[Rfam]
RNA sequence: UAAUGAUUAUAGAAAAAGAGCUGAGCGGCUAACUCAGCUCCACGUAGAACCGUUGAAGACGGCAGCAAAGUUUAUUGUUAUUAAAAA
Numbered sequence: 001u002a003a004u005g006a007u008u009a010u011a012g013a014a015a016a017a018g019a020g021c022u023g024a025g026c027g028g029c030u031a032a033c034u035c036a037g038c039u040c041c042a043c044g045u046a047g048a049a050c051c052g053u054u055g056a057a058g059a060c061g062g063c064a065g066c067a068a069a070g071u072u073u074a075u076u077g078u079u080a081u082u083a084a085a086a087a
Stems, first nucleotide, its partner, number of pairs: 022036004050062005
This 87-nucleotide sequence from Streptococcus hyointestinalis belongs to the Rfam family "RNA anti-toxin A". The source organism's lineage runs through Bacteria, Bacillota, Bacilli, Lactobacillales and Streptococcus. Its family is annotated with mRNA binding and negative regulation of translation in the Gene Ontology.